A member of the RNA family "Selenocysteine transfer RNA" from Thalassiosira oceanica, 86 nucleotides long.
The organism belongs to Thalassiosira, within Eukaryota.
It scores 75 bits against the family's covariance model.

RNA sequence: GUGGAGAUGACCCUGCCUGGUGGUGGGUACUGGCUUCAAACCAGUGGGCGACUAGCGUCGCAGUUGUUCGAUUCAACCUUCUCCAC
Dot-bracket structure: (((((((.(..((((((....))))))((((((.......)))))).(((((....))))).((((.......))))).)))))))
Numbered sequence: 001g002u003g004g005a006g007a008u009g010a011c012c013c014u015g016c017c018u019g020g021u022g023g024u025g026g027g028u029a030c031u032g033g034c035u036u037c038a039a040a041c042c043a044g045u046g047g048g049c050g051a052c053u054a055g056c057g058u059c060g061c062a063g064u065u066g067u068u069c070g071a072u073u074c075a076a077c078c079u080u081c082u083c084c085a086c
Stems, first nucleotide, its partner, number of pairs: 001086007009078001012027006028046006048061005063077004